A member of the RNA family "Bacterial RNase P class A" from Anaerocolumna aminovalerica, 379 nucleotides long. Rfam classes the family as a ribozyme. The base pairs follow the family's consensus structure, which is taken from published work.
[Rfam]
RNA sequence: UGAGUAGCACAGAUGAUCGCGCCUAUAAGUACCGAAAGGUCAUAGGUGAGGAAAGUCCGAGCUUCAUAGGGCAGGGUGCCGGAUAACGUCCGGUGGAGGUGACUCCAAGGCUAGUGCAAUAGAAAUAUACCGCCAGAUUCAUCUGCUUGCAGAUGUUUUGGUAAGGGUGGAAAGGUGGUGUAAGAGACCACCGCUUGUUUGGUAACAAACAAGGCUCUGUAAACCCCACUCGAAGUAAGACCGAAUUAAAAGCGAUACGGUUGCCCGCCGUGCUUUGGGUAGGUCGCGAUUUGUCUUUGACAAAUGAGCUAUAUGGUAACAUGUAGCAAAGAUAGAUGAUCAUCGAAUACAGAACUCGGCUUAUAGUGCUGCUCACUUA
Numbered sequence: 001u002g003a004g005u006a007g008c009a010c011a012g013a014u015g016a017u018c019g020c021g022c023c024u025a026u027a028a029g030u031a032c033c034g035a036a037a038g039g040u041c042a043u044a045g046g047u048g049a050g051g052a053a054a055g056u057c058c059g060a061g062c063u064u065c066a067u068a069g070g071g072c073a074g075g076g077u078g079c080c081g082g083a084u085a086a087c088g089u090c091c092g093g094u095g096g097a098g099g100u101g102a103c104u105c106c107a108a109g110g111c112u113a114g115u116g117c118a119a120u121a122g123a124a125a126u127a128u129a130c131c132g133c134c135a136g137a138u139u140c141a142u143c144u145g146c147u148u149g150c151a152g153a154u155g156u157u158u159u160g161g162u163a164a165g166g167g168u169g170g171a172a173a174g175g176u177g178g179u180g181u182a183a184g185a186g187a188c189c190a191c192c193g194c195u196u197g198u199u200u201g202g203u204a205a206c207a208a209a210c211a212a213g214g215c216u217c218u219g220u221a222a223a224c225c226c227c228a229c230u231c232g233a234a235g236u237a238a239g240a241c242c243g244a245a246u247u248a249a250a251a252g253c254g255a256u257a258c259g260g261u262u263g264c265c266c267g268c269c270g271u272g273c274u275u276u277g278g279g280u281a282g283g284u285c286g287c288g289a290u291u292u293g294u295c296u297u298u299g300a301c302a303a304a305u306g307a308g309c310u311a312u313a314u315g316g317u318a319a320c321a322u323g324u325a326g327c328a329a330a331g332a333u334a335g336a337u338g339a340u341c342a343u344c345g346a347a348u349a350c351a352g353a354a355c356u357c358g359g360c361u362u363a364u365a366g367u368g369c370u371g372c373u374c375a376c377u378u379a
Base pairs, nucleotide, nucleotide: 001375002374003373004372005371006370007369008368009367010366011364012344013343014342015341016340017339018338020048021047022046023045024044025043026042028040053362054361055360057359058358059357060356061355062235063234064233065232069266070265071264072263074231075230076229077228078227079093080092081091082090083089094108095106096105097104098103109226110225114224115223116220117219118218130166131165132162133161134160135159136158137157139155174192175191176190177189178188179187193215194213195212196211197210198209199208200207201206239285240284241283242282249276250275251274252273253272254271258270259269260268261267308327309326310325311324312323313322314321315320